[Rfam]
RNA: mir-2060 microRNA precursor family
RNA sequence: GUUUGCCUGUCUGUGGAAGGUGUUCAGCACCAAGGAUAGGUUUGUUUGCCUGUGUGUGGAAGGUGUUCAGCACCAAGGACAGGUUUGCUUGUGA
Number, nucleotide and partner (000 for none) at each position: 001g000002u000003u000004u000005g084006c083007c082008u081009g080010u079011c000012u000013g000014u000015g000016g000017a000018a000019g074020g073021u072022g071023u070024u069025c000026a067027g066028c065029a064030c063031c062032a000033a000034g055035g000036a053037u052038a051039g050040g049041u048042u000043u000044g000045u000046u000047u000048g041049c040050c039051u038052g037053u036054g000055u034056g000057u000058g000059g000060a000061a000062g031063g030064u029065g028066u027067u026068c000069a024070g023071c022072a021073c020074c019075a000076a000077g000078g000079a010080c009081a008082g007083g006084u005085u000086u000087g000088c000089u000090u000091g000092u000093g000094a000